[Rfam]
Nucleotides: 080
Base pairs, nucleotide, nucleotide: 002080003079004078005077006074007073009071010070011069012068015065016064017063018062019061020060021059023057024056025055026054027053028052032048034046035045036044
Number, partner (000 for none) and nucleotide at each position: 001000u002080g003079c004078a005077c006074c007073a008000c009071g010070u011069u012068g013000a014000g015065c016064u017063g018062c019061a020060u021059c022000a023057g024056u025055c026054a027053u028052g029000c030000c031000a032048u033000a034046u035045u036044a037000u038000g039000a040000a041000a042000c043000c044036u045035a046034a047000c048032g049000c050000a051000a052028c053027g054026u055025g056024a057023c058000c059021g060020a061019u062018g063017c064016a065015g066000g067000c068012u069011g070010a071009c072000a073007u074006g075000a076000u077005g078004u079003g080002u

mir-1791 microRNA precursor family: an 80-nucleotide RNA from Fregata magnificens. The organism belongs to Fregata, within Eukaryota. Rfam links the family to the GO terms miRNA-mediated post-transcriptional gene silencing and RISC complex.